RNA sequence: AAAGAUAGAGGACGGAACGGGCAGCCGUCGCCUUUAUUGGAGAUGCGGGAGUGUCGCCCCGCCUAUUUUU
Numbered sequence: 001a002a003a004g005a006u007a008g009a010g011g012a013c014g015g016a017a018c019g020g021g022c023a024g025c026c027g028u029c030g031c032c033u034u035u036a037u038u039g040g041a042g043a044u045g046c047g048g049g050a051g052u053g054u055c056g057c058c059c060c061g062c063c064u065a066u067u068u069u070u
Stems, first nucleotide, its partner, number of pairs: 001070008011029005020055004031040001045062005
RNA: skipping-rope RNA